[Rfam]
RNA: MIR2617 microRNA precursor family
Organism: Medicago truncatula
RNA sequence: AAGCAGUGUGACAUGCCCGUUUGGUAUUAGCCUCUGAUGUAUUAUUUGUUAUUUAAUUGCUUUAGGGUAACGGGGUGUUACAAUUGGU
Numbered sequence: 001a002a003g004c005a006g007u008g009u010g011a012c013a014u015g016c017c018c019g020u021u022u023g024g025u026a027u028u029a030g031c032c033u034c035u036g037a038u039g040u041a042u043u044a045u046u047u048g049u050u051a052u053u054u055a056a057u058u059g060c061u062u063u064a065g066g067g068u069a070a071c072g073g074g075g076u077g078u079u080a081c082a083a084u085u086g087g088u
Stems, first nucleotide, its partner, number of pairs: 002088001004086003007082008016074006